U12 minor spliceosomal RNA: a 150-nucleotide RNA sequence from Abrus precatorius. Rfam classes the family as a spliceosomal small nuclear RNA.
RNA sequence: UUGCCUUAAACUAAUGAGUAAGGAAAACAAAGCGAACGGUGGGAGCCGGUCGCAGCACUCAUUCUGAGGUGCAAGAAUUUAUGGAGGGGUUAUAGGCUGGCCAUGUGUUGACGCUGCUUACUUUGCAGAACUCGCGUGUGCGGGCCUCCC
Numbered sequence: 001u002u003g004c005c006u007u008a009a010a011c012u013a014a015u016g017a018g019u020a021a022g023g024a025a026a027a028c029a030a031a032g033c034g035a036a037c038g039g040u041g042g043g044a045g046c047c048g049g050u051c052g053c054a055g056c057a058c059u060c061a062u063u064c065u066g067a068g069g070u071g072c073a074a075g076a077a078u079u080u081a082u083g084g085a086g087g088g089g090u091u092a093u094a095g096g097c098u099g100g101c102c103a104u105g106u107g108u109u110g111a112c113g114c115u116g117c118u119u120a121c122u123u124u125g126c127a128g129a130a131c132u133c134g135c136g137u138g139u140g141c142g143g144g145c146c147u148c149c150c
Base pairs, nucleotide, nucleotide: 004023005022006021007020008019032053033052034051035050037048038047039046055072056071057070058069059068088150089149094147095146096145097144098143100141102138103137105135106134107133114128115127116126117125